[Rfam]
The record is a 78-nucleotide RNA sequence from Schistosoma mansoni, which matches "mir-3492 microRNA precursor family" in Rfam. It scores 50 bits against the family's covariance model.
RNA sequence: AGCUUUCUGAAUCCGUGAACAGAUUUCGUCAGACACCAACUCAUUAAGGUUGAUCAGAUUUCCAAGAUACGUGAAGUU
Numbered sequence: 001a002g003c004u005u006u007c008u009g010a011a012u013c014c015g016u017g018a019a020c021a022g023a024u025u026u027c028g029u030c031a032g033a034c035a036c037c038a039a040c041u042c043a044u045u046a047a048g049g050u051u052g053a054u055c056a057g058a059u060u061u062c063c064a065a066g067a068u069a070c071g072u073g074a075a076g077u078u
Stems, first nucleotide, its partner, number of pairs: 002077005008071002011068003016064002021060002024058003028054003